[Rfam]
RNA: Eukaryotic small subunit ribosomal RNA, nucleotides 612 to 1146
Organism: Pneumocystis wakefieldiae
RNA sequence: CAGUUAAAAAGCUCGUAGUUGAAUUUAGGGAUUGGUUGCCCGGUCCUCCGUAGUUGUGUGCACUGGUGCAGCUGAUCCUUCCUCCUGGAUUACCGGCAUGCUCUUCGUUGGGUGUGCUGGAUAAGCCAGGGUAUUUUACUUUGAGAAAAUUAGAGUGUUCAAAGCAGGCAUUUGCUCGAAUACAUUAGCAUGGAAUAAUAAAAUAGGACAUGUGGUUCUAUUUUGUUGGUUUCUAGGACCAUUGUAAUGAUUAAUAGGGACAGUUGGGGGCAUUAGUAUUCAAUUGUCAGAGGUGAAAUUCUUAGAUUUAUUGAAGACUAACUACUGCGAAAGCAUUUGCCAAGGAUGUUUUCAUUAAUCAAGAACGAAAGUUAGGGGAUCGAAGACGAUCAGAUACCGUCGUAGUCUUAACCAUAAACUAUGCCGACUAGAGAUCGGGCGAUGUUUUUUUCUUGACUCGCUCGGCAUCUUAUGAGAAAUCAAAGUCUUCGGGUUCCGGGGGGAGUAUGGUCGCAAGGCUGAAACUUAAAGGAAU
Numbered sequence: 001c002a003g004u005u006a007a008a009a010a011g012c013u014c015g016u017a018g019u020u021g022a023a024u025u026u027a028g029g030g031a032u033u034g035g036u037u038g039c040c041c042g043g044u045c046c047u048c049c050g051u052a053g054u055u056g057u058g059u060g061c062a063c064u065g066g067u068g069c070a071g072c073u074g075a076u077c078c079u080u081c082c083u084c085c086u087g088g089a090u091u092a093c094c095g096g097c098a099u100g101c102u103c104u105u106c107g108u109u110g111g112g113u114g115u116g117c118u119g120g121a122u123a124a125g126c127c128a129g130g131g132u133a134u135u136u137u138a139c140u141u142u143g144a145g146a147a148a149a150u151u152a153g154a155g156u157g158u159u160c161a162a163a164g165c166a167g168g169c170a171u172u173u174g175c176u177c178g179a180a181u182a183c184a185u186u187a188g189c190a191u192g193g194a195a196u197a198a199u200a201a202a203a204u205a206g207g208a209c210a211u212g213u214g215g216u217u218c219u220a221u222u223u224u225g226u227u228g229g230u231u232u233c234u235a236g237g238a239c240c241a242u243u244g245u246a247a248u249g250a251u252u253a254a255u256a257g258g259g260a261c262a263g264u265u266g267g268g269g270g271c272a273u274u275a276g277u278a279u280u281c282a283a284u285u286g287u288c289a290g291a292g293g294u295g296a297a298a299u300u301c302u303u304a305g306a307u308u309u310a311u312u313g314a315a316g317a318c319u320a321a322c323u324a325c326u327g328c329g330a331a332a333g334c335a336u337u338u339g340c341c342a343a344g345g346a347u348g349u350u351u352u353c354a355u356u357a358a359u360c361a362a363g364a365a366c367g368a369a370a371g372u373u374a375g376g377g378g379a380u381c382g383a384a385g386a387c388g389a390u391c392a393g394a395u396a397c398c399g400u401c402g403u404a405g406u407c408u409u410a411a412c413c414a415u416a417a418a419c420u421a422u423g424c425c426g427a428c429u430a431g432a433g434a435u436c437g438g439g440c441g442a443u444g445u446u447u448u449u450u451u452c453u454u455g456a457c458u459c460g461c462u463c464g465g466c467a468u469c470u471u472a473u474g475a476g477a478a479a480u481c482a483a484a485g486u487c488u489u490c491g492g493g494u495u496c497c498g499g500g501g502g503g504a505g506u507a508u509g510g511u512c513g514c515a516a517g518g519c520u521g522a523a524a525c526u527u528a529a530a531g532g533a534a535u
Stems, first nucleotide, its partner, number of pairs: 001498001003496001009495001011366001013364002018359003257353004261348002264345002269341004275319002279315006286308001290301003327334002371412006381405001385401004423494003426487003430470003435465008444457003474481002500527003509520004